Shown here is a 68-nucleotide RNA sequence from Canis lupus, a member of the family "mir-184 microRNA precursor family". Its family is annotated with gene silencing by miRNA and RISC complex in the Gene Ontology. NCBI's taxonomy places the organism under Eukaryota, Sarcopterygii, Laurasiatheria, Caniformia, Canis lupus. Rfam's curators put it in the seed alignment.
RNA sequence: CCCCUUAUCACUUUUCCAGCCAGCUUUGUGACUCUAAGUGUUGGACGGAGAACUGAUAAGGGUAGGUG
Numbered sequence: 001c002c003c004c005u006u007a008u009c010a011c012u013u014u015u016c017c018a019g020c021c022a023g024c025u026u027u028g029u030g031a032c033u034c035u036a037a038g039u040g041u042u043g044g045a046c047g048g049a050g051a052a053c054u055g056a057u058a059a060g061g062g063u064a065g066g067u068g
Base pairs, nucleotide, nucleotide: 002062003061004060005059006058007057008056009055010054012052013051014050015049016048017047020044021043